[Rfam]
Rfam assigns this 184-nucleotide RNA from Vibrio renipiscarius to the family "Lysine riboswitch aptamer". The family's consensus secondary structure is taken from published work. A reference for the family is Grundy et al. (2003), "The L box regulon: Lysine sensing by leader RNAs of bacterial lysine biosynthesis genes", Proc Natl Acad Sci U S A.
RNA sequence: UAAUGCGGUAGAGGAGCGGAAUGAAUGAGUCGCGUUUAUUGGGGUGAUGCCAAUGAAUAAACGUAAAAGGUCUUUUCCGCCGAAGUGAGCUUGUAAAUCAAAACAGCUUGCUGGGGUUGCACUCGAAUAGGGGCAACACUGCCAUAGUCUAUUAUUUGUAUAACUAUGGAGCGCUACUGUAGGC
Dot-bracket structure: .....((((((....((((((.((.......((((((((.................))))))))......))..))))))...((((((((..(.......)..))))))))((.(((((.((......)).))))).)).(((((((..............)))))))....)))))).....
Numbered sequence: 001u002a003a004u005g006c007g008g009u010a011g012a013g014g015a016g017c018g019g020a021a022u023g024a025a026u027g028a029g030u031c032g033c034g035u036u037u038a039u040u041g042g043g044g045u046g047a048u049g050c051c052a053a054u055g056a057a058u059a060a061a062c063g064u065a066a067a068a069g070g071u072c073u074u075u076u077c078c079g080c081c082g083a084a085g086u087g088a089g090c091u092u093g094u095a096a097a098u099c100a101a102a103a104c105a106g107c108u109u110g111c112u113g114g115g116g117u118u119g120c121a122c123u124c125g126a127a128u129a130g131g132g133g134c135a136a137c138a139c140u141g142c143c144a145u146a147g148u149c150u151a152u153u154a155u156u157u158g159u160a161u162a163a164c165u166a167u168g169g170a171g172c173g174c175u176a177c178u179g180u181a182g183g184c
Stems, first nucleotide, its partner, number of pairs: 006179006016080006023072002032064008084112008094102001113140002116137005122131002142169007